Notes: Rfam assigns this 61-nucleotide sequence from Trema andersonii to the family "Plastid-psbN 5UTR RNA". A search with the family's covariance model found it, with a score of 58 bits. The literature on the family includes a 2023 paper in Plant Commun by Richter et al., "Retrograde signaling in plants: A critical review focusing on the GUN pathway and beyond". Rfam's curators write: Plastid psbN is a non-coding RNA (ncRNA) recognised in plastids. By type it is a cis-regulatory element. Taxonomically the source falls in Trema (Eukaryota, Streptophytina, Embryophyta, Magnoliopsida).
[Rfam]
RNA sequence: UACGAUGCCCAAUAAAGGGAUAGUUCCCCAACUAAGAGCUAUUUUAUCAUAUUUUGAAUUG
Numbered sequence: 001u002a003c004g005a006u007g008c009c010c011a012a013u014a015a016a017g018g019g020a021u022a023g024u025u026c027c028c029c030a031a032c033u034a035a036g037a038g039c040u041a042u043u044u045u046a047u048c049a050u051a052u053u054u055u056g057a058a059u060u061g
Base pairs, nucleotide, nucleotide: 017045018044019043020042021041022040023039024038025037026036